Rfam assigns this 102-nucleotide sequence from Cycloclasticus sp. P1 to the family "Glycine riboswitch aptamer". Lineage of the source: Bacteria > Pseudomonadati > Gammaproteobacteria > Piscirickettsiaceae > Cycloclasticus. It scores 46 bits against the family's covariance model.
[Rfam]
Nucleotides: 102
Stems, first nucleotide, its partner, number of pairs: 006097001009094005020041008043083003046079002050077003057070003
Number, partner (000 for none) and nucleotide at each position: 001000u002000c003000a004000g005000u006097u007000g008000a009094c010093u011092c012091u013090g014000g015000a016000g017000a018000g019000a020041g021040g022039u023038u024037a025036g026035g027034c028000g029000g030000a031000u032000a033000c034027g035026u036025u037024u038023a039022g040021c041020c042000c043083a044082c045081c046079g047078a048000a049000g050077a051076g052075g053000c054000a055000a056000g057070a058069g059068g060000g061000c062000a063000a064000a065000a066000g067000c068059u069058c070057u071000u072000a073000a074000a075052c076051u077050u078047u079046c080000a081045g082044g083043u084000u085000u086000u087000g088000g089000a090013c091012a092011g093010a094009g095000g096000g097006g098000c099000g100000g101000c102000a